Shown here is a 95-nucleotide RNA sequence from Arabidopsis thaliana, a member of the family "Small nucleolar RNA Z161/Z228". Clan: SNORD35 clan. The literature on the family includes a 2003 paper in Nucleic Acids Res by Chen et al., "The high diversity of snoRNAs in plants: identification and comparative study of 120 snoRNA genes from Oryza sativa". It is annotated as a C/D-box small nucleolar RNA. Rfam 15.1 lists 630 matches to the family in 214 species.

RNA sequence: AAUUCAAGUGAUGAGAUUUGAUCUAAAAUUCUCACGACGGUCGUCUGAGGCCUUUUGUGGCCGAUUGAUGUACCGAUCACUCCUCUCUGAUGAUA
Numbered sequence: 001a002a003u004u005c006a007a008g009u010g011a012u013g014a015g016a017u018u019u020g021a022u023c024u025a026a027a028a029u030u031c032u033c034a035c036g037a038c039g040g041u042c043g044u045c046u047g048a049g050g051c052c053u054u055u056u057g058u059g060g061c062c063g064a065u066u067g068a069u070g071u072a073c074c075g076a077u078c079a080c081u082c083c084u085c086u087c088u089g090a091u092g093a094u095a
Base pairs, nucleotide, nucleotide: 002094003093004092051060052059